[Rfam]
RNA sequence: CCGCCCGUCGCUACUACCGAUCGAACGGUCCGGUGAGGUCCUCGGAUCUGGCCGACGACGCCGCCGGGCAGCGUGCACGUGGCGCAGCGGCUGCGGUCUCCGCCGCCGUUUCACGCGCGUGUCGUACUCGCCUCGGCGUUCGAUGCCUGGAGAAGACGACCGAACCCGAUCGUUUAGAGGAAGUAAAAGUCGUAACAAGGUUUCCGUAGGUGAACCUGCGGAAGGAUCAUUA
Numbered sequence: 001c002c003g004c005c006c007g008u009c010g011c012u013a014c015u016a017c018c019g020a021u022c023g024a025a026c027g028g029u030c031c032g033g034u035g036a037g038g039u040c041c042u043c044g045g046a047u048c049u050g051g052c053c054g055a056c057g058a059c060g061c062c063g064c065c066g067g068g069c070a071g072c073g074u075g076c077a078c079g080u081g082g083c084g085c086a087g088c089g090g091c092u093g094c095g096g097u098c099u100c101c102g103c104c105g106c107c108g109u110u111u112c113a114c115g116c117g118c119g120u121g122u123c124g125u126a127c128u129c130g131c132c133u134c135g136g137c138g139u140u141c142g143a144u145g146c147c148u149g150g151a152g153a154a155g156a157c158g159a160c161c162g163a164a165c166c167c168g169a170u171c172g173u174u175u176a177g178a179g180g181a182a183g184u185a186a187a188a189g190u191c192g193u194a195a196c197a198a199g200g201u202u203u204c205c206g207u208a209g210g211u212g213a214a215c216c217u218g219c220g221g222a223a224g225g226a227u228c229a230u231u232a
Stems, first nucleotide, its partner, number of pairs: 001199001003196001006192002009189001012185004017180002021176001023175008032166003037161004042156002047151005053145002056142002058139006201224010
This 232-nucleotide part of an RNA from Acanthosepion pharaonis belongs to the Rfam family "Eukaryotic small subunit ribosomal RNA". Its family is annotated with structural constituent of ribosome and ribosome in the Gene Ontology. The match comes from Rfam's covariance-model search (1447 bits). Taxonomically the source falls in Acanthosepion (Eukaryota, Protostomia, Coleoidea, Sepiidae). Its Rfam clan is "SSU clan".